[Rfam]
RNA: Small nucleolar RNA snoR145
RNA sequence: AAGCGAAGGACCCAGCAGGGAAGCGAGUAAACUCAUGAAAUGAGGCUUCUCUAACAAUUUAUUUAACCUUCGUAGAUUGAAUCUCCAAGAGCUCUUUGAUGAUCUACGUUUUCGUGGGUUCUCUUGUGUUUUUUGGUGUAUAGCU
Numbered sequence: 001a002a003g004c005g006a007a008g009g010a011c012c013c014a015g016c017a018g019g020g021a022a023g024c025g026a027g028u029a030a031a032c033u034c035a036u037g038a039a040a041u042g043a044g045g046c047u048u049c050u051c052u053a054a055c056a057a058u059u060u061a062u063u064u065a066a067c068c069u070u071c072g073u074a075g076a077u078u079g080a081a082u083c084u085c086c087a088a089g090a091g092c093u094c095u096u097u098g099a100u101g102a103u104c105u106a107c108g109u110u111u112u113c114g115u116g117g118g119u120u121c122u123c124u125u126g127u128g129u130u131u132u133u134u135g136g137u138g139u140a141u142a143g144c145u
Base pairs, nucleotide, nucleotide: 003073004072005071006070007069008068009067011020012019013018025051026050027049032044033043034042035041036040085136086135087134088133089132090131091130098123099122101120102119103118104117105116106115107114108113